[Rfam]
RNA: c-di-AMP riboswitch aptamer (ydaO/yuaA leader)
RNA sequence: AACAAAUAAAGGCCGAAGCUUCCUAUACGAAGCGCGGGGAACCCACCAUUUUUUUCGGGGUGAAGCCGCCAAAAGCGGCAGGGUGAUUGCUCUUUGACCCGAACCCGUCAGCUAACCUCGCAGGCCCAAAUAAGGAGAGGA
Numbered sequence: 001a002a003c004a005a006a007u008a009a010a011g012g013c014c015g016a017a018g019c020u021u022c023c024u025a026u027a028c029g030a031a032g033c034g035c036g037g038g039g040a041a042c043c044c045a046c047c048a049u050u051u052u053u054u055u056c057g058g059g060g061u062g063a064a065g066c067c068g069c070c071a072a073a074a075g076c077g078g079c080a081g082g083g084u085g086a087u088u089g090c091u092c093u094u095u096g097a098c099c100c101g102a103a104c105c106c107g108u109c110a111g112c113u114a115a116c117c118u119c120g121c122a123g124g125c126c127c128a129a130a131u132a133a134g135g136a137g138a139g140g141a
Base pairs, nucleotide, nucleotide: 011126012125013124014123018033019032020031021030022029034121035120036119037118038117039116044057058106059105060104066078067077068076069075081100082099083098084097